[Rfam]
RNA sequence: GUGCAUGACUCUGGAGAGACCGGUUGAAUCCGGCGCCGAAGGGGCAAAAGCGCGUUCGCCGCCUCAUCGGCGCGCACGUGUCUUCAAACUCUCAGGCAAAAGGACAGAGGGGCGAGC
Dot-bracket structure: .....(..(((((......((((......)))).(((((..(((...((.................................))....))))).))).......)))))..).....
Description:
Shown here is a 117-nucleotide sequence from Cognatilysobacter bugurensis, a member of the family "Glycine riboswitch aptamer". The pairing is the family consensus, mapped onto this sequence.